[Rfam]
RNA sequence: UGAGACAAGUAGAGGCACCCGCUUCUCACCUGAUUGACGCUUUUUAGUAGUUGGCAGGUUAUACAUUCCGAUAUUAAUGGAUAAGUGUGGGUGCAGUAUGUACUCACACUUUUUUAAAUAC
Numbered sequence: 001u002g003a004g005a006c007a008a009g010u011a012g013a014g015g016c017a018c019c020c021g022c023u024u025c026u027c028a029c030c031u032g033a034u035u036g037a038c039g040c041u042u043u044u045u046a047g048u049a050g051u052u053g054g055c056a057g058g059u060u061a062u063a064c065a066u067u068c069c070g071a072u073a074u075u076a077a078u079g080g081a082u083a084a085g086u087g088u089g090g091g092u093g094c095a096g097u098a099u100g101u102a103c104u105c106a107c108a109c110u111u112u113u114u115u116a117a118a119u120a121c
Base pairs, nucleotide, nucleotide: 011026012025013024014023015022016021028059029058030057036052037051038050039048040047086108087107088106089105090104091103092102093101094100095099
This 121-nucleotide RNA from Radiobacillus deserti belongs to the Rfam family "Ribosomal protein L20 leader". NCBI's taxonomy places the organism under Bacteria, Bacillati, Bacilli, Bacillaceae, Radiobacillus.